[Rfam]
The family of this 305-nucleotide sequence from Amphiprion ocellaris is "Nuclear RNase P". Rfam's curators write: Ribonuclease P (RNase P) is a ubiquitous endoribonuclease, found in archaea, bacteria and eukarya as well as chloroplasts and mitochondria. Taxonomically the source falls in Amphiprion (Eukaryota, Craniata, Actinopterygii, Acanthomorphata). A search with the family's covariance model found it, with a score of 228 bits. The family is grouped with related families in Rfam's "RNaseP clan".
RNA sequence: GUGGGCGGAAGCUCAUUGUAGAGGUCACAUGCUGAGUGCUUGUCACUCCACCAAUCACCUCGGGGAAGGUCUGAGACUGGAGCCAAUGGUUGCCCUAGCAGGGCAUCACCUGAUUCGGGUGAGCGAGUGAACAGAAAUGAAGGGCCGCAGCGAACCGUUAACGCAGGAGAAGCCAGAUGGAGCAGUUUAUCUACGCUGGUGGAUGUGAGGCUCGCAGGCUUGGAAUCACUCGCGGCUGGCGAAUGAGUGCGAUGUAUGAGGUGGAGCACCGCUCCAGAACCCAAUUCAGACUACUCUCCUCCCAC
Numbered sequence: 001g002u003g004g005g006c007g008g009a010a011g012c013u014c015a016u017u018g019u020a021g022a023g024g025u026c027a028c029a030u031g032c033u034g035a036g037u038g039c040u041u042g043u044c045a046c047u048c049c050a051c052c053a054a055u056c057a058c059c060u061c062g063g064g065g066a067a068g069g070u071c072u073g074a075g076a077c078u079g080g081a082g083c084c085a086a087u088g089g090u091u092g093c094c095c096u097a098g099c100a101g102g103g104c105a106u107c108a109c110c111u112g113a114u115u116c117g118g119g120u121g122a123g124c125g126a127g128u129g130a131a132c133a134g135a136a137a138u139g140a141a142g143g144g145c146c147g148c149a150g151c152g153a154a155c156c157g158u159u160a161a162c163g164c165a166g167g168a169g170a171a172g173c174c175a176g177a178u179g180g181a182g183c184a185g186u187u188u189a190u191c192u193a194c195g196c197u198g199g200u201g202g203a204u205g206u207g208a209g210g211c212u213c214g215c216a217g218g219c220u221u222g223g224a225a226u227c228a229c230u231c232g233c234g235g236c237u238g239g240c241g242a243a244u245g246a247g248u249g250c251g252a253u254g255u256a257u258g259a260g261g262u263g264g265a266g267c268a269c270c271g272c273u274c275c276a277g278a279a280c281c282c283a284a285u286u287c288a289g290a291c292u293a294c295u296c297u298c299c300u301c302c303c304a305c
Stems, first nucleotide, its partner, number of pairs: 001305004007299003012260005021061004034048005071289005081237004091105005106122006123233007144219003262276006
Dot-bracket structure: ((((..(((..(((((....((((.........(((((.....))))).........)))).........[[[[[.....((((......(((((.....)))))((((((.....))))))(((((((..............(((......................................................................))).......)))))))))))..................))))).((((((...))))))........]]]]].......)))..))))
Rfam 15.1 lists 3,848 matches to the family in 1,862 species.